[Rfam]
Shown here is a 125-nucleotide sequence from Rhinopithecus bieti, a member of the family "U4atac minor spliceosomal RNA".
For this family Rfam cites "Evolutionary conservation of minor U12-type spliceosome between plants and humans" (Lorkovic et al., RNA, 2005).
The family has 61 seed sequences and 1,648 matches in Rfam 15.1.
The organism belongs to Rhinopithecus, within Eukaryota.
RNA sequence: ACCAUCUUUUUGUUGGGGUUGCACUACUGUCCAGUGAGCACAUAGUGAGGGCAGUACUGCUGAGGCCUAUACAACAUGCCUGCAUCAUCUAGAGCUUUGCUUUACCUUGGUACUAUUUUGGAAAA
Number, nucleotide and partner (000 for none) at each position: 001a000002c000003c000004a000005u000006c018007u017008u016009u015010u000011u000012g000013u000014u000015g009016g008017g007018g006019u000020u000021g060022c059023a058024c000025u000026a055027c054028u053029g052030u051031c050032c049033a000034g000035u000036g000037a000038g046039c045040a000041c000042a000043u000044a000045g039046u038047g000048a000049g032050g031051g030052c029053a028054g027055u026056a000057c000058u023059g022060c021061u000062g000063a000064g000065g000066c000067c000068u000069a000070u000071a000072c000073a000074a000075c000076a000077u000078g000079c000080c000081u000082g113083c000084a111085u110086c109087a108088u000089c000090u104091a103092g102093a101094g100095c099096u000097u000098u000099g095100c094101u093102u092103u091104a090105c000106c000107u000108u087109g086110g085111u084112a000113c082114u000115a000116u000117u000118u000119u000120g000121g000122a000123a000124a000125a000